[Rfam]
RNA sequence: CCAAUCGAAAGGGACAUGAAAAGCAGUCCCGUGCCGCCACGGCAUCUGAGUUCCGAAAUAAAAUGAC
Numbered sequence: 001c002c003a004a005u006c007g008a009a010a011g012g013g014a015c016a017u018g019a020a021a022a023g024c025a026g027u028c029c030c031g032u033g034c035c036g037c038c039a040c041g042g043c044a045u046c047u048g049a050g051u052u053c054c055g056a057a058a059u060a061a062a063a064u065g066a067c
Stems, first nucleotide, its partner, number of pairs: 011030005032044004